[Rfam]
RNA sequence: GGGUCGGCCUAGCCGACUGGGUACUUCGAAUCCAUUUGUUCUCCCAUUUCGUAAGAAAUAACAACAACAACACAGUCCCAGCGGCGCAGUCCAACCCUUUU
Numbered sequence: 001g002g003g004u005c006g007g008c009c010u011a012g013c014c015g016a017c018u019g020g021g022u023a024c025u026u027c028g029a030a031u032c033c034a035u036u037u038g039u040u041c042u043c044c045c046a047u048u049u050c051g052u053a054a055g056a057a058a059u060a061a062c063a064a065c066a067a068c069a070a071c072a073c074a075g076u077c078c079c080a081g082c083g084g085c086g087c088a089g090u091c092c093a094a095c096c097c098u099u100u101u
Base pairs, nucleotide, nucleotide: 002096003095004094006092007091012085013084014083015082017081018080019079020078025075026074

Shown here is a 101-nucleotide RNA from Darwinula stevensoni, a member of the family "Vault RNA". Rfam classes the family as a non-coding RNA gene. A reference for the family is Stadler et al. (2009), "Evolution of Vault RNAs", Mol Biol Evol. A search with the family's covariance model found it, with a score of 43 bits.